[Rfam]
RNA sequence: UCAUGGGUUCCCCGCGAAGCGAGGUAUAGAGUUCCUACGUGGUAAAAGAUCCGUAGGAACUUCAUACCGUGCUCUUUGGGUGAACUUCU
Numbered sequence: 001u002c003a004u005g006g007g008u009u010c011c012c013c014g015c016g017a018a019g020c021g022a023g024g025u026a027u028a029g030a031g032u033u034c035c036u037a038c039g040u041g042g043u044a045a046a047a048g049a050u051c052c053g054u055a056g057g058a059a060c061u062u063c064a065u066a067c068c069g070u071g072c073u074c075u076u077u078g079g080g081u082g083a084a085c086u087u088c089u
Stems, first nucleotide, its partner, number of pairs: 012079003018073004023068005029062010